[Rfam]
RNA sequence: CUACGAUAAUGGCAAACUUAUCUGAAAAGUAAGGACGCAAAGCUACGGGUCUAAGGUUUUAAACUAGGAUCGCCGGGUUACCGAA
Numbered sequence: 001c002u003a004c005g006a007u008a009a010u011g012g013c014a015a016a017c018u019u020a021u022c023u024g025a026a027a028a029g030u031a032a033g034g035a036c037g038c039a040a041a042g043c044u045a046c047g048g049g050u051c052u053a054a055g056g057u058u059u060u061a062a063a064c065u066a067g068g069a070u071c072g073c074c075g076g077g078u079u080a081c082c083g084a085a
Base pairs, nucleotide, nucleotide: 012038013037017033018032019031020030022029023028041079042078043077044076046075047074048073049070050069051068056064057063058062